About this RNA: A member of the RNA family "Small nucleolar RNA Z40" from Pseudonaja textilis, 75 nucleotides long. Lineage of the source: Eukaryota > Bilateria > Chordata > Squamata > Pseudonaja. A reference for the family is Chen et al. (2003), "The high diversity of snoRNAs in plants: identification and comparative study of 120 snoRNA genes from Oryza sativa", Nucleic Acids Res. Its family is annotated with RNA processing and nucleolus in the Gene Ontology. Pairs were carried over by alignment from the consensus structure, which was predicted with PFOLD.
[Rfam]
RNA sequence: GAUUGUCAUGAUGAUUGGCAAGAUGUUCAACUGCUCUGAAAAGAGAGAAUGAUGUAACAGCCAUUCUGAACAAAG
Numbered sequence: 001g002a003u004u005g006u007c008a009u010g011a012u013g014a015u016u017g018g019c020a021a022g023a024u025g026u027u028c029a030a031c032u033g034c035u036c037u038g039a040a041a042a043g044a045g046a047g048a049a050u051g052a053u054g055u056a057a058c059a060g061c062c063a064u065u066c067u068g069a070a071c072a073a074a075g
Base pairs, nucleotide, nucleotide: 003073004072005071006070